[Rfam]
RNA: SAM riboswitch aptamer (S box leader)
Nucleotides: 113
Stems, first nucleotide, its partner, number of pairs: 001113001003111006013042005021031003025085004043077004048073002050069004081105001086102006
Number, partner (000 for none) and nucleotide at each position: 001113u002000a003111c004110u005109c006108a007107u008106c009000c010000a011000g012000a013042g014041g015040g016039g017038c018000a019000g020000a021031g022030g023029g024000a025085c026084c027083g028082g029023c030022c031021c032000g033000u034000a035000g036000a037000a038017g039016c040015c041014c042013c043077g044076g045075c046074a047000a048073c049072c050069a051068c052067c053066c054000g055000g056000c057000a058000a059000u060000c061000c062000c063000g064000c065000g066053g067052g068051g069050u070000u071000u072049g073048g074046u075045g076044c077043c078000a079000a080000c081105u082028c083027c084026g085025g086102c087101c088100c089099g090098u091097u092000g093000a094000c095000c096000g097091a098090g099089c100088g101087g102086g103000g104000a105081a106008g107007a108006u109005g110004a111003g112000g113001a